[Rfam]
RNA sequence: CCGCCCGUCGCUCCUACCGAUCGAAUGAUACGGUAAAGUUAACGGAUCGUUUUAUCUGUGGCAACACUGAUAUAAAUUAAAAGUUAUUUAAAUCUCAUUGUUUAGAGGAAGGAGAAGUCGUAACAAGGUAUCCGUAGGUGAACCUGCGGAUGGAUCAUUU
Numbered sequence: 001c002c003g004c005c006c007g008u009c010g011c012u013c014c015u016a017c018c019g020a021u022c023g024a025a026u027g028a029u030a031c032g033g034u035a036a037a038g039u040u041a042a043c044g045g046a047u048c049g050u051u052u053u054a055u056c057u058g059u060g061g062c063a064a065c066a067c068u069g070a071u072a073u074a075a076a077u078u079a080a081a082a083g084u085u086a087u088u089u090a091a092a093u094c095u096c097a098u099u100g101u102u103u104a105g106a107g108g109a110a111g112g113a114g115a116a117g118u119c120g121u122a123a124c125a126a127g128g129u130a131u132c133c134g135u136a137g138g139u140g141a142a143c144c145u146g147c148g149g150a151u152g153g154a155u156c157a158u159u160u
Stems, first nucleotide, its partner, number of pairs: 001127001003124001006120002009117001011114005017108002021104001023103007032094003037089002040086004047079001049077004053072004058067003129152010

Eukaryotic small subunit ribosomal RNA: a 160-nucleotide part of an RNA from Dictyostelium discoideum. Its family is annotated with structural constituent of ribosome and ribosome in the Gene Ontology. Rfam 15.1 lists 75,755 matches to the family in 2,556 species.